mir-33 microRNA precursor family: a 60-nucleotide RNA from Salmo salar. The sequence is in the family's curated seed alignment. Rfam links the family to the GO terms gene silencing by miRNA and RISC complex. Lineage of the source: Eukaryota > Eumetazoa > Euteleostomi > Actinopteri > Salmo. Pairs were carried over by alignment from the consensus structure, which was predicted with PFOLD. A reference for the family is Li et al. (2009), "Direct sequencing and expression analysis of a large number of miRNAs in Aedes aegypti and a multi-species survey of novel mosquito miRNAs", BMC Genomics.

RNA sequence: GUGCAUUGUAGUUGCAUUGCACUGGGCUGCAGGAUCAUGCAAUGUGUCUGCAGUGCAGUA
Numbered sequence: 001g002u003g004c005a006u007u008g009u010a011g012u013u014g015c016a017u018u019g020c021a022c023u024g025g026g027c028u029g030c031a032g033g034a035u036c037a038u039g040c041a042a043u044g045u046g047u048c049u050g051c052a053g054u055g056c057a058g059u060a
Stems, first nucleotide, its partner, number of pairs: 002057010014045001016043006